[Rfam]
The record is a 178-nucleotide RNA sequence from Mediterraneibacter torques, which matches "Group II catalytic intron D1-D4-3" in Rfam.
RNA sequence: UCCAUCGUGAGGUGGAAUCUGAAGAAAGUUGUAAGCAAAUCUCUGGUCCGACGGACAGAAAUCACAUAUAAGGCUAGGCUGUGAGAGAUAAGUUGGCCAAAAGCAACGAAGUCUAAUAACUAUCACUUUUGUAGCAGCAGAGUAGAUGUGGCGGAUAUAUGGAGAGAAAGAGCGUGAA
Numbered sequence: 001u002c003c004a005u006c007g008u009g010a011g012g013u014g015g016a017a018u019c020u021g022a023a024g025a026a027a028g029u030u031g032u033a034a035g036c037a038a039a040u041c042u043c044u045g046g047u048c049c050g051a052c053g054g055a056c057a058g059a060a061a062u063c064a065c066a067u068a069u070a071a072g073g074c075u076a077g078g079c080u081g082u083g084a085g086a087g088a089u090a091a092g093u094u095g096g097c098c099a100a101a102a103g104c105a106a107c108g109a110a111g112u113c114u115a116a117u118a119a120c121u122a123u124c125a126c127u128u129u130u131g132u133a134g135c136a137g138c139a140g141a142g143u144a145g146a147u148g149u150g151g152c153g154g155a156u157a158u159a160u161g162g163a164g165a166g167a168a169a170g171a172g173c174g175u176g177a178a
Base pairs, nucleotide, nucleotide: 001016002015003014004013005012006011029177030176031175032174036170040165041164042163043162044161045160046156047155048154049153050152062151063150064149065148066147067146073143074142075141078138079137080136081135086114087113088112089111092107093106094105095104
Pairs were carried over by alignment from the consensus structure. From the family's description: Group II introns are found in rRNA, tRNA and mRNA of organelles in fungi, plants and protists, and also in mRNA in bacteria.